RNA sequence: CUCGAUAAAUGGCAAACCUGGCGAAAGCCAGCGACGCAAAGCUAGAGGGACUUGCGCGGCAUGUAACAGCGCGCGUGUCAGCCAGCUGCCGAA
Number, nucleotide and partner (000 for none) at each position: 001c000002u000003c000004g000005a000006u000007a000008a000009a000010u000011g000012g037013c036014a000015a000016a000017c000018c031019u030020g029021g028022c027023g000024a000025a000026a000027g022028c021029c020030a019031g018032c000033g000034a000035c000036g013037c012038a000039a000040a087041g086042c085043u084044a000045g000046a000047g083048g082049g079050a078051c077052u000053u000054g000055c073056g072057c071058g070059g000060c000061a000062u000063g000064u000065a000066a000067c000068a000069g000070c058071g057072c056073g055074c000075g000076u000077g051078u050079c049080a000081g000082c048083c047084a043085g042086c041087u040088g000089c000090c000091g000092a000093a000
Notes: The record is a 93-nucleotide RNA from Paenibacillus methanolicus, which matches "c-di-GMP-I riboswitch aptamer" in Rfam. The match comes from Rfam's covariance-model search (62 bits).